The record is a 50-nucleotide RNA, which matches "S4-Clostridia ribosomal protein leader" in Rfam. The sequence is in the family's curated seed alignment. The family's consensus secondary structure is taken from published work. Rfam classes the family as a cis-regulatory leader. For this family Rfam cites "Discovery of 20 novel ribosomal leader candidates in bacteria and archaea" (Eckert and Weinberg, BMC Microbiol, 2020).
[Rfam]
RNA sequence: GAAAGGCUGUAUUUUCAUACAGCUGGGUACCACACGGUGCCCCAGUUAGA
Numbered sequence: 001g002a003a004a005g006g007c008u009g010u011a012u013u014u015u016c017a018u019a020c021a022g023c024u025g026g027g028u029a030c031c032a033c034a035c036g037g038u039g040c041c042c043c044a045g046u047u048a049g050a
Base pairs, nucleotide, nucleotide: 005024006023007022008021009020010019011018012017025042026041027040028039029038030037031036